Rfam assigns this 97-nucleotide sequence from Azomonas agilis to the family "Bacterial small signal recognition particle RNA". Pairs were carried over by alignment from the consensus structure, which is taken from published work. Clan: SRP clan. The match comes from Rfam's covariance-model search (76 bits). From the family's description: The signal recognition particle (SRP) is a universally conserved ribonucleoprotein involved in the co-translational targeting of proteins to membranes.

RNA sequence: CGCCGGUCCCCUCGCAACGAUCAACCGUGAACCCGGUCAGGUCCGGAAGGAAGCAGCCGUAGCGGUGACAUUGUGUGCCGGGGUGUGGCUGGUGGAG
Numbered sequence: 001c002g003c004c005g006g007u008c009c010c011c012u013c014g015c016a017a018c019g020a021u022c023a024a025c026c027g028u029g030a031a032c033c034c035g036g037u038c039a040g041g042u043c044c045g046g047a048a049g050g051a052a053g054c055a056g057c058c059g060u061a062g063c064g065g066u067g068a069c070a071u072u073g074u075g076u077g078c079c080g081g082g083g084u085g086u087g088g089c090u091g092g093u094g095g096a097g
Stems, first nucleotide, its partner, number of pairs: 004091005010083005015075001017074005024066005034059004042051003
Dot-bracket structure: ...(((((.((((((.(((((..(((((.....((((....(((....)))....))))..)))))...))))))...)))))...)))))......